A member of the RNA family "mir-9193 microRNA precursor family" from Myotis lucifugus, 72 nucleotides long.
Rfam links the family to the GO terms miRNA-mediated post-transcriptional gene silencing and RISC complex.
The source organism's lineage runs through Eukaryota, Deuterostomia, Euteleostomi, Dipnotetrapodomorpha and Myotis.
The family's consensus secondary structure was predicted with RNAalifold.
[Rfam]
RNA sequence: CUAGGGGUGGGGGGUCUCUCAGCCUGGAUUGUGAGAGGGUGCAGGCCAGGCUUGGGACCCCAUUGGUGCAUG
Numbered sequence: 001c002u003a004g005g006g007g008u009g010g011g012g013g014g015u016c017u018c019u020c021a022g023c024c025u026g027g028a029u030u031g032u033g034a035g036a037g038g039g040u041g042c043a044g045g046c047c048a049g050g051c052u053u054g055g056g057a058c059c060c061c062a063u064u065g066g067u068g069c070a071u072g
Stems, first nucleotide, its partner, number of pairs: 004069001006067001008065003011061008021052004026047002029044005